[Rfam]
RNA sequence: AAAUGCAUUACAGGGUAAGAUCUCUAUUGGCAGGAAACCAUUACUUAGAUCUUUGCAUCUCUUUAUGCAUUGCUUUUAAUUAGUGAGUUAUCUGCCAAAGGAGAUUUGCCCUGUAAUUCUUCU
Numbered sequence: 001a002a003a004u005g006c007a008u009u010a011c012a013g014g015g016u017a018a019g020a021u022c023u024c025u026a027u028u029g030g031c032a033g034g035a036a037a038c039c040a041u042u043a044c045u046u047a048g049a050u051c052u053u054u055g056c057a058u059c060u061c062u063u064u065a066u067g068c069a070u071u072g073c074u075u076u077u078a079a080u081u082a083g084u085g086a087g088u089u090a091u092c093u094g095c096c097a098a099a100g101g102a103g104a105u106u107u108g109c110c111c112u113g114u115a116a117u118u119c120u121u122c123u
Stems, first nucleotide, its partner, number of pairs: 005119001007117003011113009022103004028097007036089003

Annotation: This 123-nucleotide RNA sequence belongs to the Rfam family "mir-399 microRNA precursor family". Gene Ontology terms of the family: miRNA-mediated post-transcriptional gene silencing and RISC complex. mir-399 was identified in both Arabidopsis thaliana and Oryza sativa computationally and was later experimentally verified. mir-399 is thought to target mRNAs coding for a phosphatase transporter. The mature sequence is excised from the 3' arm of the hairpin.